Background
The record is a 150-nucleotide RNA from Acerihabitans arboris, which matches "EFASI RNA" in Rfam. A search with the family's covariance model found it, with a score of 80 bits. NCBI's taxonomy places the organism under Bacteria, Pseudomonadati, Enterobacterales, Pectobacteriaceae, Acerihabitans. It is annotated as a small RNA.
RNA sequence: UCGACACGACAUCGAUGGCGACACCAGGAGACUGGUGUGUGGAGGUAGACUGAUGCAAAUCAGCCCGGCGUAAGCCGCGAACAGGUCUGAGACCUGGGGAGCCUCGUAAUAACUCAACAUUUCGCCGCCCCGAUGCACAGAUGCCUGUUG
Dot-bracket structure: .((((..(.((((.....(((((((((....))))))).))((((....(((((....)))))..................((((((...)))))..)...))))..................................)))).).))))
Numbered sequence: 001u002c003g004a005c006a007c008g009a010c011a012u013c014g015a016u017g018g019c020g021a022c023a024c025c026a027g028g029a030g031a032c033u034g035g036u037g038u039g040u041g042g043a044g045g046u047a048g049a050c051u052g053a054u055g056c057a058a059a060u061c062a063g064c065c066c067g068g069c070g071u072a073a074g075c076c077g078c079g080a081a082c083a084g085g086u087c088u089g090a091g092a093c094c095u096g097g098g099g100a101g102c103c104u105c106g107u108a109a110u111a112a113c114u115c116a117a118c119a120u121u122u123c124g125c126c127g128c129c130c131c132g133a134u135g136c137a138c139a140g141a142u143g144c145c146u147g148u149u150g
Stems, first nucleotide, its partner, number of pairs: 002150004008145001010143004019041002021038007042105004050063005082098001083095005